[Rfam]
RNA sequence: CUGGAGGAAUAAGAAAGUAGAGCCAGUCAAGUCUGUUGGCUCUAUUGAUACUGUCCUCCUAAAUUAAAUGGCAAUGGAACAAAGUCUGGUCUAUAGGAUGUACCUAGGCUUUACUACUGUCUGCCAACAAUG
Numbered sequence: 001c002u003g004g005a006g007g008a009a010u011a012a013g014a015a016a017g018u019a020g021a022g023c024c025a026g027u028c029a030a031g032u033c034u035g036u037u038g039g040c041u042c043u044a045u046u047g048a049u050a051c052u053g054u055c056c057u058c059c060u061a062a063a064u065u066a067a068a069u070g071g072c073a074a075u076g077g078a079a080c081a082a083a084g085u086c087u088g089g090u091c092u093a094u095a096g097g098a099u100g101u102a103c104c105u106a107g108g109c110u111u112u113a114c115u116a117c118u119g120u121c122u123g124c125c126a127a128c129a130a131u132g
Base pairs, nucleotide, nucleotide: 003059004058005057006056007055008054010050011049018044019043020042021041022040023039024038026034070125071124072123073122077118082112083111084110086108087107089105

The record is a 132-nucleotide sequence from Phrynocephalus forsythii, which matches "Small Cajal body specific RNA 15" in Rfam.
From the family's description: scaRNAs are a specific class of small nuclear RNAs which localise to the Cajal bodies and guide the modification of RNA polymerase II transcribed spliceosomal RNAs U1, U2, U4, U5 and U12. ACA45 belongs to the H/ACA box class of guide RNAs as it has the predicted hairpin-hinge-hairpin-tail structure, the conserved H/ACA-box motifs and is found associated with GAR1. ACA45 is predicted to guide the pseudouridylation of residue U37 of the U2 spliceosomal snRNA.
The family has 22 seed sequences and 635 matches in Rfam 15.1.
Clan: SCARNA4 clan.
Its family is annotated with Cajal body, RNA processing and nucleolus in the Gene Ontology.
A search with the family's covariance model found it, with a score of 71 bits.
The literature on the family includes a 2002 paper in EMBO J by Darzacq et al., "Cajal body-specific small nuclear RNAs: a novel class of 2'-O-methylation and pseudouridylation guide RNAs".
The base pairs follow the family's consensus structure, which was predicted with RNAfold.
It is annotated as a small Cajal body RNA.
NCBI's taxonomy places the organism under Eukaryota, Chordata, Sauropsida, Sauria, Phrynocephalus.